[Rfam]
RNA sequence: UGAGUUGCAGUGAUUAUAAACAAUUCCUCGUACUGAAUGCCACAACAAUGGCAUGAAAGACAUCUUUACACCCAUAGAAUAUGAGCAGCU
Numbered sequence: 001u002g003a004g005u006u007g008c009a010g011u012g013a014u015u016a017u018a019a020a021c022a023a024u025u026c027c028u029c030g031u032a033c034u035g036a037a038u039g040c041c042a043c044a045a046c047a048a049u050g051g052c053a054u055g056a057a058a059g060a061c062a063u064c065u066u067u068a069c070a071c072c073c074a075u076a077g078a079a080u081a082u083g084a085g086c087a088g089c090u
Stems, first nucleotide, its partner, number of pairs: 003090002006087002
Rfam assigns this 90-nucleotide sequence from Centaurea solstitialis to the family "Small nucleolar RNA snoR8a". Lineage of the source: Eukaryota > Euphyllophyta > campanulids > Cardueae > Centaurea. The literature on the family includes a 2001 paper in RNA by Brown et al., "Multiple snoRNA gene clusters from Arabidopsis".